[Rfam]
The record is a 126-nucleotide RNA sequence from Bacillus methanolicus, which matches "epsC RNA" in Rfam. By type it is a cis-regulatory element. Taxonomically the source falls in Bacillus methanolicus (Bacteria, Bacillota, Bacilli, Bacillaceae). The family has 30 seed sequences and 450 matches in Rfam 15.1.
RNA sequence: CGGCGAGGCUUCCUGUCCGUUAUCCAUGGAGGCACUCGGCCAUGCUGUGGGUGGAGGACGAUGACGGUCCGUUCACCUUAGACGCCUGUCGUCGAUGGUGUGGCGUGAGGGCGGGUUAGAUGCCCA
Numbered sequence: 001c002g003g004c005g006a007g008g009c010u011u012c013c014u015g016u017c018c019g020u021u022a023u024c025c026a027u028g029g030a031g032g033c034a035c036u037c038g039g040c041c042a043u044g045c046u047g048u049g050g051g052u053g054g055a056g057g058a059c060g061a062u063g064a065c066g067g068u069c070c071g072u073u074c075a076c077c078u079u080a081g082a083c084g085c086c087u088g089u090c091g092u093c094g095a096u097g098g099u100g101u102g103g104c105g106u107g108a109g110g111g112c113g114g115g116u117u118a119g120a121u122g123c124c125c126a
Stems, first nucleotide, its partner, number of pairs: 001019003008033006035109004039104008049078007081093004113125004